[Rfam]
RNA sequence: AAAAGAAAGCAGAAGCAUCCCGCUUCUCGCCUAAGGAAUAAGAAAGUUCCGGGGCAGAAUUAUAAAACUAAUUCCGAUAAAACGGAUCAUGUGCGGGGUGUUGUCAUGUAUUUGACAAGACCCCGCUUUUUCUGUCUG
Dot-bracket structure: ..........((((((.....)))))).(((...(((((......)))))..)))......................................((((((.((((((......)))))).)))))).............
Shown here is a 138-nucleotide sequence from Ligilactobacillus ceti, a member of the family "Ribosomal protein L20 leader". By type it is a cis-regulatory leader. A search with the family's covariance model found it, with a score of 60 bits. Its family is annotated with regulation of gene expression in the Gene Ontology. NCBI's taxonomy places the organism under Bacteria, Bacillati, Bacillota, Lactobacillaceae, Ligilactobacillus ceti.